[Rfam]
RNA sequence: AUGCACUAGACGGGGAACUAGCGGUGCCUUGUAACCUGCAAUCCGCUGUAGCAGGGUUUAAUUCCCAGCCGAGGGAUAUUUUCUAUUUAUAAGCCUACUAAAGAUAGUGUUGACUGAUGGGUCUUACGCAACAGGAAACUGUGAACCAUGUCAGGACGGGAACGUAGCAGCAUUAAGCAGAUCUUUCUGUGUGCCGUAAGGUCACCUAUCACGAGCUAGACUUUUUUAGAAACUCUAACUAGGAUUUAUUUCAAAACUGGGUGUGCUU
Numbered sequence: 001a002u003g004c005a006c007u008a009g010a011c012g013g014g015g016a017a018c019u020a021g022c023g024g025u026g027c028c029u030u031g032u033a034a035c036c037u038g039c040a041a042u043c044c045g046c047u048g049u050a051g052c053a054g055g056g057u058u059u060a061a062u063u064c065c066c067a068g069c070c071g072a073g074g075g076a077u078a079u080u081u082u083c084u085a086u087u088u089a090u091a092a093g094c095c096u097a098c099u100a101a102a103g104a105u106a107g108u109g110u111u112g113a114c115u116g117a118u119g120g121g122u123c124u125u126a127c128g129c130a131a132c133a134g135g136a137a138a139c140u141g142u143g144a145a146c147c148a149u150g151u152c153a154g155g156a157c158g159g160g161a162a163c164g165u166a167g168c169a170g171c172a173u174u175a176a177g178c179a180g181a182u183c184u185u186u187c188u189g190u191g192u193g194c195c196g197u198a199a200g201g202u203c204a205c206c207u208a209u210c211a212c213g214a215g216c217u218a219g220a221c222u223u224u225u226u227u228a229g230a231a232a233c234u235c236u237a238a239c240u241a242g243g244a245u246u247u248a249u250u251u252c253a254a255a256a257c258u259g260g261g262u263g264u265g266c267u268u
Stems, first nucleotide, its partner, number of pairs: 001268001003266004008059004012030004017025003035055005064261005073252005081244005087238002092234002096231001098229004105219001106217003115211008123200006129191002132189005137182001139180004148173004156165003
RNA: Bacterial large signal recognition particle RNA
Organism: Anaerococcus nagyae